[Rfam]
RNA: L31-Firmicutes ribosomal protein leader
RNA sequence: CUCUGGGCUCGCAUGAAGCUCAGGGCAAAAGAG
Number, nucleotide and partner (000 for none) at each position: 001c025002u024003c023004u022005g021006g020007g019008c018009u000010c000011g000012c000013a000014u000015g000016a000017a000018g008019c007020u006021c005022a004023g003024g002025g001026c000027a000028a000029a000030a000031g000032a000033g000